[Rfam]
Nucleotides: 103
Base pairs, nucleotide, nucleotide: 009095011093012092013091020033021032022031023030035083036082037081038079039078042077044075048070049069050068051067052066053065054064055063
Number, partner (000 for none) and nucleotide at each position: 001000g002000g003000a004000g005000g006000g007000u008000a009095c010000u011093c012092u013091g014000g015000a016000g017000a018000a019000u020033c021032c022031c023030a024000u025000u026000a027000a028000a029000u030023u031022g032021g033020g034000u035083g036082c037081c038079g039078a040000a041000g042077g043000u044075g045000c046000a047000a048070g049069g050068u051067u052066u053065a054064c055063a056000u057000u058000u059000a060000a061000a062000g063055u064054g065053u066052a067051a068050g069049c070048u071000g072000a073000a074000u075044c076000u077042c078039u079038c080000a081037g082036g083035c084000a085000a086000a087000a088000a089000g090000a091013c092012a093011g094000u095009g096000a097000u098000g099000a100000u101000g102000a103000g